This 112-nucleotide RNA sequence from Streptococcus iniae belongs to the Rfam family "PyrR binding site".

RNA sequence: CAUACCUUUAAUAGAGUCCAGAGAGGCUUAAAAGGUUCACGAAAUAAAAGAGUGCUACCUGCACUCGUAUUUUCUGUAACCUUGCUUUUUUGGAGAGCAAGGUUUUUUGUCU
Numbered sequence: 001c002a003u004a005c006c007u008u009u010a011a012u013a014g015a016g017u018c019c020a021g022a023g024a025g026g027c028u029u030a031a032a033a034g035g036u037u038c039a040c041g042a043a044a045u046a047a048a049a050g051a052g053u054g055c056u057a058c059c060u061g062c063a064c065u066c067g068u069a070u071u072u073u074c075u076g077u078a079a080c081c082u083u084g085c086u087u088u089u090u091u092g093g094a095g096a097g098c099a100a101g102g103u104u105u106u107u108u109g110u111c112u
Stems, first nucleotide, its partner, number of pairs: 004036006014029005043073002046070001048068001050066006076106001078104011
The source organism's lineage runs through Bacteria, Bacillati, Bacilli, Lactobacillales and Streptococcus. The base pairs follow the family's consensus structure, which is taken from published work. By type it is a cis-regulatory element.